[Rfam]
RNA: Group II catalytic intron D1-D4-3
RNA sequence: UCCAUCGCGAGGUGGAAUCUGAAGGAAGCCAGCGGCAAAUCUCCGGUCUGACGAACAGAAAUCACAUAAAAGGCAGGAAAAAAACCGGGUGAGGUUGCAACUCAAACCGAAGCCCCAAACUAUUCGAGGUCAAUCCUGUAGAUGUGGCAGAUAGAUGGAGAGAAAGACUGCGUU
Numbered sequence: 001u002c003c004a005u006c007g008c009g010a011g012g013u014g015g016a017a018u019c020u021g022a023a024g025g026a027a028g029c030c031a032g033c034g035g036c037a038a039a040u041c042u043c044c045g046g047u048c049u050g051a052c053g054a055a056c057a058g059a060a061a062u063c064a065c066a067u068a069a070a071a072g073g074c075a076g077g078a079a080a081a082a083a084a085c086c087g088g089g090u091g092a093g094g095u096u097g098c099a100a101c102u103c104a105a106a107c108c109g110a111a112g113c114c115c116c117a118a119a120c121u122a123u124u125c126g127a128g129g130u131c132a133a134u135c136c137u138g139u140a141g142a143u144g145u146g147g148c149a150g151a152u153a154g155a156u157g158g159a160g161a162g163a164a165a166g167a168c169u170g171c172g173u174u
Stems, first nucleotide, its partner, number of pairs: 001016006028174001030172001036166001040161006046152005062147006073139003077135002082130001087115004093108004